[Rfam]
RNA sequence: GCCCCAAGUCGCACGUGCCUGUGGGCGUCCCCCGGUCCUCAAAUGCGAGGGUUGCCGGGACGGUACCUGGACGUAACACAUCCAGUCGGUUUUGCGAGCUUCGCAAAAUUGAGGACGCCUUGAAGCAACGACGGUCCGGGCCUUU
Numbered sequence: 001g002c003c004c005c006a007a008g009u010c011g012c013a014c015g016u017g018c019c020u021g022u023g024g025g026c027g028u029c030c031c032c033c034g035g036u037c038c039u040c041a042a043a044u045g046c047g048a049g050g051g052u053u054g055c056c057g058g059g060a061c062g063g064u065a066c067c068u069g070g071a072c073g074u075a076a077c078a079c080a081u082c083c084a085g086u087c088g089g090u091u092u093u094g095c096g097a098g099c100u101u102c103g104c105a106a107a108a109u110u111g112a113g114g115a116c117g118c119c120u121u122g123a124a125g126c127a128a129c130g131a132c133g134g135u136c137c138g139g140g141c142c143u144u145u
Base pairs, nucleotide, nucleotide: 001141002140003139004138008132009131010130011129016127017126018125023120024119025118026117027116028115029114030113031059032058033057034056035055037050038049039048040047067085068084069083070082071081086112087111088110089109092106093105094104095103096102097101
About this RNA:
This 145-nucleotide RNA from Aurantimonas marianensis belongs to the Rfam family "Alphaproteobacterial sRNA ar45". A search with the family's covariance model found it, with a score of 136 bits. NCBI's taxonomy places the organism under Bacteria, Pseudomonadati, Alphaproteobacteria, Hyphomicrobiales, Aurantimonas. Pairs were carried over by alignment from the consensus structure.